RNA sequence: GAAGGAAGCGUUGGCCCUCGGAGCCGCCCGUCGGGGGGAGGCUUCAAACCGCCCUCAGCUGCGUUGGCUGAAGACUGUCGUGGUGAGCGUGGAGGGAAAAGGCGCCCGUUGAGGCGUCAGGU
Number, nucleotide and partner (000 for none) at each position: 001g019002a018003a000004g016005g015006a000007a000008g000009c000010g000011u000012u000013g000014g000015c005016c004017c000018u002019c001020g045021g044022a043023g042024c041025c040026g000027c038028c037029c036030g000031u000032c000033g000034g000035g000036g029037g028038g027039a000040g025041g024042c023043u022044u021045c020046a000047a000048a000049c000050c121051g000052c096053c095054c094055u093056c092057a090058g084059c083060u000061g081062c080063g079064u000065u077066g076067g075068c000069u000070g000071a000072a000073g000074a000075c067076u066077g065078u000079c063080g062081u061082g000083g059084u058085g000086a000087g000088c000089g000090u057091g000092g056093a055094g054095g053096g052097a000098a000099a000100a000101g118102g117103c116104g115105c114106c113107c000108g000109u000110u000111g000112a000113g106114g105115c104116g103117u102118c101119a000120g000121g050122u000